Rfam assigns this 171-nucleotide RNA from Arachidicoccus soli to the family "Group II catalytic intron D1-D4-3". The family has 406 seed sequences and 4,274 matches in Rfam 15.1. Lineage of the source: Bacteria > Chitinophagia > Chitinophagales > Chitinophagaceae > Arachidicoccus.
RNA sequence: UCCCGGGUGACUGGGAAUCUGAAGGAAGCCGCAGGCAAAGCGCUGACAUGACGCACAGAAAUCGUAUGAGGCUGUCUAUCUGGAUGAGGAGGCAAUUAUCUCUAAAGUCCGAUACUUACACGGGAAGGUAGGCAGUAAAUACGGCAUGUAUAAGCGUGACAGAAAUGCAUC
Numbered sequence: 001u002c003c004c005g006g007g008u009g010a011c012u013g014g015g016a017a018u019c020u021g022a023a024g025g026a027a028g029c030c031g032c033a034g035g036c037a038a039a040g041c042g043c044u045g046a047c048a049u050g051a052c053g054c055a056c057a058g059a060a061a062u063c064g065u066a067u068g069a070g071g072c073u074g075u076c077u078a079u080c081u082g083g084a085u086g087a088g089g090a091g092g093c094a095a096u097u098a099u100c101u102c103u104a105a106a107g108u109c110c111g112a113u114a115c116u117u118a119c120a121c122g123g124g125a126a127g128g129u130a131g132g133c134a135g136u137a138a139a140u141a142c143g144g145c146a147u148g149u150a151u152a153a154g155c156g157u158g159a160c161a162g163a164a165a166u167g168c169a170u171c
Stems, first nucleotide, its partner, number of pairs: 001016006028171001031168002036162001040157005046149005062144005071136003075132007082110004088103004
Rfam describes the family as follows. Group II introns are found in rRNA, tRNA and mRNA of organelles in fungi, plants and protists, and also in mRNA in bacteria. The pairing is the family consensus, mapped onto this sequence. For this family Rfam cites "Control of branch-site choice by a group II intron" (Chu et al., EMBO J, 2001).